Source information:
Shown here is a 167-nucleotide sequence from Racocetra fulgida, a member of the family "U1 spliceosomal RNA". A search with the family's covariance model found it, with a score of 87 bits. Lineage of the source: Eukaryota > Opisthokonta > Glomeromycota > Gigasporaceae > Racocetra. The family is grouped with related families in Rfam's "U1 clan". The family's consensus secondary structure is taken from published work.

[Rfam]
RNA sequence: AUACUUACCUGCCAGGAUAUAACCAUGAUCAACAAGGUGGUUGUAUAGGUAGUGGUUGCUGGCAUUGCACUAAAGCUGGAGGCUGCUGCUUCGAACAUCCUACGGGGUGUCUCGACUGGAUAAUUUUUGUCUGCUGGGUGGAACGUGGUUCGCCGCGAACUGCCCUU
Numbered sequence: 001a002u003a004c005u006u007a008c009c010u011g012c013c014a015g016g017a018u019a020u021a022a023c024c025a026u027g028a029u030c031a032a033c034a035a036g037g038u039g040g041u042u043g044u045a046u047a048g049g050u051a052g053u054g055g056u057u058g059c060u061g062g063c064a065u066u067g068c069a070c071u072a073a074a075g076c077u078g079g080a081g082g083c084u085g086c087u088g089c090u091u092c093g094a095a096c097a098u099c100c101u102a103c104g105g106g107g108u109g110u111c112u113c114g115a116c117u118g119g120a121u122a123a124u125u126u127u128u129g130u131c132u133g134c135u136g137g138g139u140g141g142a143a144c145g146u147g148g149u150u151c152g153c154c155g156c157g158a159a160c161u162g163c164c165c166u167u
Stems, first nucleotide, its partner, number of pairs: 012119004017046010048090004055083003059079005092114003095110003099107002136165004145156004